[Rfam]
RNA sequence: GGCCACCUUCGGGGGGCUUUACCAUGGGCGGGGAAACCCGUCGAACACACAAACGGAAGUCAGAAA
Numbered sequence: 001g002g003c004c005a006c007c008u009u010c011g012g013g014g015g016g017c018u019u020u021a022c023c024a025u026g027g028g029c030g031g032g033g034a035a036a037c038c039c040g041u042c043g044a045a046c047a048c049a050c051a052a053a054c055g056g057a058a059g060u061c062a063g064a065a066a
Stems, first nucleotide, its partner, number of pairs: 001018004006014003027042006
RNA: L2-Alphaproteobacteria ribosomal protein leader